[Rfam]
RNA sequence: AUAUUUCUUCGGGGCAGGGUGAAAUUCCCGACCGGCGGUUAUAGUCCGCGAACCUUAGGGUUGAUUUGGUGUAAUUCCAAAACCGACAGUACAGUCUGGAUGUGAGAAGAAGCAG
Numbered sequence: 001a002u003a004u005u006u007c008u009u010c011g012g013g014g015c016a017g018g019g020u021g022a023a024a025u026u027c028c029c030g031a032c033c034g035g036c037g038g039u040u041a042u043a044g045u046c047c048g049c050g051a052a053c054c055u056u057a058g059g060g061u062u063g064a065u066u067u068g069g070u071g072u073a074a075u076u077c078c079a080a081a082a083c084c085g086a087c088a089g090u091a092c093a094g095u096c097u098g099g100a101u102g103u104g105a106g107a108a109g110a111a112g113c114a115g
Stems, first nucleotide, its partner, number of pairs: 004112007017029003031095002033085002035049004044083002052061003065081005087098003
RNA: FMN riboswitch aptamer (RFN element)
Organism: Parasporobacterium paucivorans